[Rfam]
RNA sequence: GAUGUGAGUGAUGUAAACAGUUCCUUAGGUUGGUCAUUUUUGACUGUUUUGGUCAAAUUACUUGAUCUACCAAUGUUAGGAUUAGUCAUAGUUACACUGACACAUG
Numbered sequence: 001g002a003u004g005u006g007a008g009u010g011a012u013g014u015a016a017a018c019a020g021u022u023c024c025u026u027a028g029g030u031u032g033g034u035c036a037u038u039u040u041u042g043a044c045u046g047u048u049u050u051g052g053u054c055a056a057a058u059u060a061c062u063u064g065a066u067c068u069a070c071c072a073a074u075g076u077u078a079g080g081a082u083u084a085g086u087c088a089u090a091g092u093u094a095c096a097c098u099g100a101c102a103c104a105u106g
Stems, first nucleotide, its partner, number of pairs: 002105005
This 106-nucleotide RNA sequence from Triplophysa rosa belongs to the Rfam family "Small nucleolar RNA SNORD46". NCBI's taxonomy places the organism under Eukaryota, Bilateria, Teleostomi, Nemacheilidae, Triplophysa. It is annotated as a C/D-box small nucleolar RNA. Gene Ontology terms of the family: nucleolus and RNA processing. Rfam describes the family as follows. U40 is a C/D box small nucleolar RNA, also known as snoZ153 in plants. The human sequence has also been annotated in the sequence databases as U46. U40 is encoded in intron 2 of the ribosomal protein S8 gene in human, and is hypothesised to guide methylation of 2'-O-ribose residues on 28S ribosomal RNA. This family represents vertebrate U40. Rfam 15.1 lists 723 matches to the family in 611 species. On this family, see Nicoloso et al., J Mol Biol 1996: "Intron-encoded, antisense small nucleolar RNAs: the characterization of nine novel species points to their direct role as guides for the 2'-O-ribose methylation of rRNAs".